[Rfam]
RNA sequence: UAACGUAAUACUACGUUUUAUGCGGAACACCAUCCGCGUAGUAGGCUAGAACCUACAUCGGACUUCUACAAGGAGAAAACAACAUG
Numbered sequence: 001u002a003a004c005g006u007a008a009u010a011c012u013a014c015g016u017u018u019u020a021u022g023c024g025g026a027a028c029a030c031c032a033u034c035c036g037c038g039u040a041g042u043a044g045g046c047u048a049g050a051a052c053c054u055a056c057a058u059c060g061g062a063c064u065u066c067u068a069c070a071a072g073g074a075g076a077a078a079a080c081a082a083c084a085u086g
Stems, first nucleotide, its partner, number of pairs: 002017005019040007041056004